The family of this 115-nucleotide RNA sequence from Jaculus jaculus is "Small nucleolar RNA SNORA40". The source organism's lineage runs through Eukaryota, Eumetazoa, Rodentia, Dipodinae and Jaculus. The snoRNA ACA 40 belongs to the H/ACA family of snoRNAs and guides the pseudouridylation of 28S rRNA subunit at position U4565. NB This family has a high threshold value to exclude a large number of closely related sequences that do not appear to have conserved H and ACA boxes, and may be pseudogenes. The family's RNA type in Rfam is H/ACA-box small nucleolar RNA. Its family is annotated with RNA processing and nucleolus in the Gene Ontology.

RNA sequence: AGCACUUAUAUGUGUCUUUGUUGAACUGACAAAGACAGGUGCAAAAAUAAAUUCUCUUUUGCAACCCAGAGCUCAUUGUUAAGUAUGAGUUUUGAUACAUAUAAGAAAGAAUAAG
Numbered sequence: 001a002g003c004a005c006u007u008a009u010a011u012g013u014g015u016c017u018u019u020g021u022u023g024a025a026c027u028g029a030c031a032a033a034g035a036c037a038g039g040u041g042c043a044a045a046a047a048u049a050a051a052u053u054c055u056c057u058u059u060u061g062c063a064a065c066c067c068a069g070a071g072c073u074c075a076u077u078g079u080u081a082a083g084u085a086u087g088a089g090u091u092u093u094g095a096u097a098c099a100u101a102u103a104a105g106a107a108a109g110a111a112u113a114a115g
Stems, first nucleotide, its partner, number of pairs: 002042005011037001014036008051112005057106005067094010